The record is an 80-nucleotide sequence from Spinacia oleracea, which matches "Small nucleolar RNA SNORD34" in Rfam. Rfam describes the family as follows. snoRNA U34 is found in intron 5 of the ribosomal protein L13a gene in humans. The family has 14 seed sequences and 1,319 matches in Rfam 15.1. A reference for the family is Galardi et al. (2002), "Purified box C/D snoRNPs are able to reproduce site-specific 2'-O-methylation of target RNA in vitro", Mol Cell Biol.

RNA sequence: AUUGGCCGAUGAUGAUUUAAAAUUUUGCCUACAUUGUCUGACAAAUUACAUGAUAAUGAAUAUGCAGUUCUGAGGCCUUU
Numbered sequence: 001a002u003u004g005g006c007c008g009a010u011g012a013u014g015a016u017u018u019a020a021a022a023u024u025u026u027g028c029c030u031a032c033a034u035u036g037u038c039u040g041a042c043a044a045a046u047u048a049c050a051u052g053a054u055a056a057u058g059a060a061u062a063u064g065c066a067g068u069u070c071u072g073a074g075g076c077c078u079u080u
Stems, first nucleotide, its partner, number of pairs: 001080001004077004
Dot-bracket structure: (..((((..................................................................))))..)